[Rfam]
The record is a 253-nucleotide sequence from Aphanomyces euteiches, which matches "RNase MRP" in Rfam. By type it is a ribozyme. A reference for the family is Schmitt et al. (1993), "Secondary structure of RNase MRP RNA as predicted by phylogenetic comparison", FASEB J.
RNA sequence: GAACACGAUUUAGAAUUGCAGAGUCAAGUGCCGCUUGAUUGGGAAAUUCCCCGGACCGCAGAGCAGAAAGUGCUGGCAGUGAAUGCAGAACGCCUCGGUUGGACGCUGUGAAGAUACCAUUCGUGGUGGAGCAUGUGCUGACGACCGAAGUCUGUUCGUCAUACCAAAGUUAUGCAAUUGGCCCUCAAGCAACAAGUCGACGUCGUGCGGCCGCUUGGCGGGUUAACUCAACGGGGAUUACUCAUGUCGUGUU
Numbered sequence: 001g002a003a004c005a006c007g008a009u010u011u012a013g014a015a016u017u018g019c020a021g022a023g024u025c026a027a028g029u030g031c032c033g034c035u036u037g038a039u040u041g042g043g044a045a046a047u048u049c050c051c052c053g054g055a056c057c058g059c060a061g062a063g064c065a066g067a068a069a070g071u072g073c074u075g076g077c078a079g080u081g082a083a084u085g086c087a088g089a090a091c092g093c094c095u096c097g098g099u100u101g102g103a104c105g106c107u108g109u110g111a112a113g114a115u116a117c118c119a120u121u122c123g124u125g126g127u128g129g130a131g132c133a134u135g136u137g138c139u140g141a142c143g144a145c146c147g148a149a150g151u152c153u154g155u156u157c158g159u160c161a162u163a164c165c166a167a168a169g170u171u172a173u174g175c176a177a178u179u180g181g182c183c184c185u186c187a188a189g190c191a192a193c194a195a196g197u198c199g200a201c202g203u204c205g206u207g208c209g210g211c212c213g214c215u216u217g218g219c220g221g222g223u224u225a226a227c228u229c230a231a232c233g234g235g236g237a238u239u240a241c242u243c244a245u246g247u248c249g250u251g252u253u
Stems, first nucleotide, its partner, number of pairs: 002253008011244001014179006024041001025037004045239003049236004062074004079086002088152002095148006103139001107133003116127004181223004186218001